[Rfam]
RNA sequence: GGGCAGGAUAUGUGAAGUAGGCCCACCCGCAAGCGGGUCGUCCUUCUUCACGAAGCCCUUAUUCGCACUGCGUGCUCAACGGGGGCUGAUCGGCAAGCUG
Numbered sequence: 001g002g003g004c005a006g007g008a009u010a011u012g013u014g015a016a017g018u019a020g021g022c023c024c025a026c027c028c029g030c031a032a033g034c035g036g037g038u039c040g041u042c043c044u045u046c047u048u049c050a051c052g053a054a055g056c057c058c059u060u061a062u063u064c065g066c067a068c069u070g071c072g073u074g075c076u077c078a079a080c081g082g083g084g085g086c087u088g089a090u091c092g093g094c095a096a097g098c099u100g
Base pairs, nucleotide, nucleotide: 001091002090004088005087006086012051013050014049015048016047017046019044020043021042025038026037027036028035029034056083057082058081065075066074067073068072

The family of this 100-nucleotide RNA sequence from Candidatus Accumulibacter regalis is "traJ-II RNA". Rfam 15.1 lists 174 matches to the family in 172 species. Lineage of the source: Bacteria > Pseudomonadati > Pseudomonadota > Betaproteobacteria > Candidatus Accumulibacter.